This 306-nucleotide sequence from Zostera marina belongs to the Rfam family "Plant signal recognition particle RNA". Rfam classes the family as a non-coding RNA gene. It scores 112 bits against the family's covariance model. The base pairs follow the family's consensus structure, which is taken from published work.
[Rfam]
RNA sequence: ACUGAGCUCGGUAACGCGUGGGCAUGUCACCAAGUGGAGUAUUAAGGUAUUUGAAUAAUUUGGUAUUGAGCUCAAGGUUGACAUUAUGAGCUAGCUUUGAUUUGCCUGUUUCCAAGUUGGGCAGUAGAAGCUAUGUUUCAGGCCAACGCUUGAAUCAUAUUCUACUUAAACUUGAGGGUAAUGAGUGAGGCUGGUUUGAUAAAACAACGAUUACCUCUCACUCUCAACGGUGGAAGAAUUACAAGUCAUUUGCUCAUAUUGCCAAUUAGCUAGCCUUGGAAUCCACCAAAUUCAACAAAUAUUUUU
Numbered sequence: 001a002c003u004g005a006g007c008u009c010g011g012u013a014a015c016g017c018g019u020g021g022g023c024a025u026g027u028c029a030c031c032a033a034g035u036g037g038a039g040u041a042u043u044a045a046g047g048u049a050u051u052u053g054a055a056u057a058a059u060u061u062g063g064u065a066u067u068g069a070g071c072u073c074a075a076g077g078u079u080g081a082c083a084u085u086a087u088g089a090g091c092u093a094g095c096u097u098u099g100a101u102u103u104g105c106c107u108g109u110u111u112c113c114a115a116g117u118u119g120g121g122c123a124g125u126a127g128a129a130g131c132u133a134u135g136u137u138u139c140a141g142g143c144c145a146a147c148g149c150u151u152g153a154a155u156c157a158u159a160u161u162c163u164a165c166u167u168a169a170a171c172u173u174g175a176g177g178g179u180a181a182u183g184a185g186u187g188a189g190g191c192u193g194g195u196u197u198g199a200u201a202a203a204a205c206a207a208c209g210a211u212u213a214c215c216u217c218u219c220a221c222u223c224u225c226a227a228c229g230g231u232g233g234a235a236g237a238a239u240u241a242c243a244a245g246u247c248a249u250u251u252g253c254u255c256a257u258a259u260u261g262c263c264a265a266u267u268a269g270c271u272a273g274c275c276u277u278g279g280a281a282u283c284c285a286c287c288a289a290a291u292u293c294a295a296c297a298a299a300u301a302u303u304u305u306u
Stems, first nucleotide, its partner, number of pairs: 001040003004025001006023005030037002044305010057292001059290003063286002072279008080263001082261002085258006093250001098248007107236001110235005116228006123222003126163004132159004137154007174217004185208002192201002